[Rfam]
RNA sequence: ACAAAACAUAUUUAUGCAUUCUAUUCACUGUGCCGUCUUUAAAUUUGUUAGAUGAACAGAGGGGAAAAGAAGAGCUAGAAGAAUCUUAAUGAGCGUCCUCAUACUGUCUAUGGCAAAUCAUCGGUCUUUUUAUUUCUUUAAAUAAGGAGAAUCUUUAUGGCUUUAGUCGGUAGCUGCGCAAGUUAUACAUCU
Numbered sequence: 001a002c003a004a005a006a007c008a009u010a011u012u013u014a015u016g017c018a019u020u021c022u023a024u025u026c027a028c029u030g031u032g033c034c035g036u037c038u039u040u041a042a043a044u045u046u047g048u049u050a051g052a053u054g055a056a057c058a059g060a061g062g063g064g065a066a067a068a069g070a071a072g073a074g075c076u077a078g079a080a081g082a083a084u085c086u087u088a089a090u091g092a093g094c095g096u097c098c099u100c101a102u103a104c105u106g107u108c109u110a111u112g113g114c115a116a117a118u119c120a121u122c123g124g125u126c127u128u129u130u131u132a133u134u135u136c137u138u139u140a141a142a143u144a145a146g147g148a149g150a151a152u153c154u155u156u157a158u159g160g161c162u163u164u165a166g167u168c169g170g171u172a173g174c175u176g177c178g179c180a181a182g183u184u185a186u187a188c189a190u191c192u
Stems, first nucleotide, its partner, number of pairs: 016075002019071002028061002031058002034054005087185004093179003104170003108166003112162003133142002
The record is a 192-nucleotide RNA from Naumovozyma dairenensis, which matches "Small nucleolar RNA snR8" in Rfam. Its family is annotated with nucleolus and RNA processing in the Gene Ontology. NCBI's taxonomy places the organism under Eukaryota, Ascomycota, Saccharomycetales, Naumovozyma, Naumovozyma dairenensis. For this family Rfam cites "Genetic analysis of small nuclear RNAs in Saccharomyces cerevisiae: viable sextuple mutant" (Parker et al., Mol Cell Biol, 1988).